[Rfam]
RNA: tRNA
Nucleotides: 088
Base pairs, nucleotide, nucleotide: 001087002086003085004084005083006082007081010026011025012024028044029043030042031041032040064080065079066078067077068076
Number, partner (000 for none) and nucleotide at each position: 001087g002086g003085a004084g005083a006082g007081g008000u009000g010026g011025c012024a013000g014000a015000g016000u017000g018000g019000u020000c021000g022000a023000a024012u025011g026010c027000a028044c029043c030042g031041c032040a033000c034000u035000c036000g037000a038000a039000a040032u041031g042030c043029g044028g045000c046000a047000u048000a049000c050000g051000u052000u053000a054000a055000u056000a057000g058000c059000g060000u061000a062000u063000c064080g065079g066078g067077g068076g069000u070000u071000c072000g073000a074000a075000u076068c077067c078066c079065c080064c081007c082006c083005u084004c085003u086002c087001c088000g